RNA sequence: UUCUUACGCCUGUCAGUGGAUGGCUCGGUUCGGGUGCCGACGAAGGGCGUGCCAAGCUGCGAUAAGCUCCGGGUAGACGCAUGGAGUCAUUGAACCGGAGAUCCCCGAAUAGGACAUCCAGAUGCAUAAAGCAUCAUUCCGCCAUCGGAAAGGGAACGCCCCGAAUUGAAACAUCUUAGUAGGGGCAGGAGAAGAAACCAACCGGGAUGUCGUUAGUAGAGGCGAUCGAACACGACAGAGUUCAAACCGAAUCCUUCGGGAGAUGUGGUGUAUGGACCGCGGCAUAAGAUUUGCAUUCAGAACUGAAGUUACCUGGAACGGUAUACCAGAGAGGGUGACAGUCCCGUAUGUGUAUGCAUGCAGACUUUAGCGGUAUCCUGAGUAGCGUGGGUCGGAAUUCCCGCGUGAAUGUGGGGGUCAUCAACCUCCAAAACUAAAUACUCCCCGAAACCGAUAGCGUAGUAGUAGCGUGAGCGAAAGCUGAAAAGCAACCCUGGAAAGGUGUUGAAAAGUGCCUGAAACUGACAGGUUAUCGCGU
Numbered sequence: 001u002u003c004u005u006a007c008g009c010c011u012g013u014c015a016g017u018g019g020a021u022g023g024c025u026c027g028g029u030u031c032g033g034g035u036g037c038c039g040a041c042g043a044a045g046g047g048c049g050u051g052c053c054a055a056g057c058u059g060c061g062a063u064a065a066g067c068u069c070c071g072g073g074u075a076g077a078c079g080c081a082u083g084g085a086g087u088c089a090u091u092g093a094a095c096c097g098g099a100g101a102u103c104c105c106c107g108a109a110u111a112g113g114a115c116a117u118c119c120a121g122a123u124g125c126a127u128a129a130a131g132c133a134u135c136a137u138u139c140c141g142c143c144a145u146c147g148g149a150a151a152g153g154g155a156a157c158g159c160c161c162c163g164a165a166u167u168g169a170a171a172c173a174u175c176u177u178a179g180u181a182g183g184g185g186c187a188g189g190a191g192a193a194g195a196a197a198c199c200a201a202c203c204g205g206g207a208u209g210u211c212g213u214u215a216g217u218a219g220a221g222g223c224g225a226u227c228g229a230a231c232a233c234g235a236c237a238g239a240g241u242u243c244a245a246a247c248c249g250a251a252u253c254c255u256u257c258g259g260g261a262g263a264u265g266u267g268g269u270g271u272a273u274g275g276a277c278c279g280c281g282g283c284a285u286a287a288g289a290u291u292u293g294c295a296u297u298c299a300g301a302a303c304u305g306a307a308g309u310u311a312c313c314u315g316g317a318a319c320g321g322u323a324u325a326c327c328a329g330a331g332a333g334g335g336u337g338a339c340a341g342u343c344c345c346g347u348a349u350g351u352g353u354a355u356g357c358a359u360g361c362a363g364a365c366u367u368u369a370g371c372g373g374u375a376u377c378c379u380g381a382g383u384a385g386c387g388u389g390g391g392u393c394g395g396a397a398u399u400c401c402c403g404c405g406u407g408a409a410u411g412u413g414g415g416g417g418u419c420a421u422c423a424a425c426c427u428c429c430a431a432a433a434c435u436a437a438a439u440a441c442u443c444c445c446c447g448a449a450a451c452c453g454a455u456a457g458c459g460u461a462g463u464a465g466u467a468g469c470g471u472g473a474g475c476g477a478a479a480g481c482u483g484a485a486a487a488g489c490a491a492c493c494c495u496g497g498a499a500a501g502g503u504g505u506u507g508a509a510a511a512g513u514g515c516c517u518g519a520a521a522c523u524g525a526c527a528g529g530u531u532a533u534c535g536c537g538u
Stems, first nucleotide, its partner, number of pairs: 008530009022516001023481002027452002029449006036441001045106003048061003067100006076088003112119002137150005157188001158186005168175002198205002209236005219227002239435004247268003277373004286367003302351002308324001310323004327331001333345003385406007413429005468475002
Dot-bracket structure: .......(((((((((.....(((..((((((((.(........((((((........))).....((((((...(((.......)))......))))))...))).....((....)).................(((((....)))))......((((((.....((....))......))))).).........((....))...(((((.....((.....))....)))))..((((....(((................)))........((((.....(((.............((....(.((((......)))))..(...).(((.......)))....)).............)))..))))...........(((((((........)))))))......(((((.......)))))..)))).....)..)))))).))...............((....))....))..................................).....)))))))))........
Shown here is a 538-nucleotide part of an RNA from Methanospirillum hungatei, a member of the family "Archaeal large subunit ribosomal RNA". Pairs were carried over by alignment from the consensus structure, which is taken from published work. The organism belongs to Methanospirillum hungatei, within Archaea. Its family is annotated with ribosome and structural constituent of ribosome in the Gene Ontology. Clan: LSU clan.